[Rfam]
RNA sequence: CGCCUAGUCCUGUCCGCGCGGUGAGGACAACCAGAUUGCGGGCAGGAGCGGAGGACCCAGGUUCUCCGGAGCAGCCAGCACCAUCGGCUGCUCCUCGGGGCGAAGCCGGCACCAGCGAUGGAGCCGGCCGGACACCUUCAAGUCCGAGCCCGACAGCUAACUUCGCAGGCG
Dot-bracket structure: ((((...(((((((((((..................)))))))))))((((((....(......................................)(((.....((((..............))))..((((........))))...))).........)))))).))))